[Rfam]
RNA: Small nucleolar RNA Z155
RNA sequence: UACUGACGUGAUGAGAUUGUUUUCGGAAGAUAUUAAUGUCGACUAAAUACAAUUCAGACUACAAUUAUCUGAUCAAUG
Number, nucleotide and partner (000 for none) at each position: 001u078002a077003c000004u075005g074006a073007c000008g000009u000010g000011a000012u000013g000014a000015g000016a000017u000018u000019g000020u000021u000022u000023u000024c000025g000026g000027a000028a000029g000030a000031u000032a000033u000034u000035a000036a000037u000038g000039u000040c000041g000042a000043c000044u000045a000046a000047a000048u000049a000050c000051a000052a000053u000054u000055c000056a000057g000058a000059c000060u000061a000062c000063a000064a000065u000066u000067a000068u000069c000070u000071g000072a000073u006074c005075a004076a000077u002078g001